Shown here is a 125-nucleotide sequence from Marmota monax, a member of the family "Small nucleolar RNA SNORA40".
Rfam links the family to the GO terms nucleolus and RNA processing.
The match comes from Rfam's covariance-model search (96 bits).
NCBI's taxonomy places the organism under Eukaryota, Opisthokonta, Bilateria, Euteleostomi, Marmota.
It is annotated as an H/ACA-box small nucleolar RNA.
Rfam 15.1 lists 2,550 matches to the family in 517 species.
[Rfam]
RNA sequence: UGGUUUUGUAUGUUUUUUUUUAACUUGUAAACAAAGACUCAGACAGUUGCAAGAAAAUAAAUCCUCUUUUGCAAUCCAGAACUCAUGGUUCAGUAUGAGUUUUGACACUCAUAAGAAGGAAUAUU
Numbered sequence: 001u002g003g004u005u006u007u008g009u010a011u012g013u014u015u016u017u018u019u020u021u022a023a024c025u026u027g028u029a030a031a032c033a034a035a036g037a038c039u040c041a042g043a044c045a046g047u048u049g050c051a052a053g054a055a056a057a058u059a060a061a062u063c064c065u066c067u068u069u070u071g072c073a074a075u076c077c078a079g080a081a082c083u084c085a086u087g088g089u090u091c092a093g094u095a096u097g098a099g100u101u102u103u104g105a106c107a108c109u110c111a112u113a114a115g116a117a118g119g120a121a122u123a124u125u
Stems, first nucleotide, its partner, number of pairs: 001049005007043001009041001012038006019031001061122002064119002067116005077104010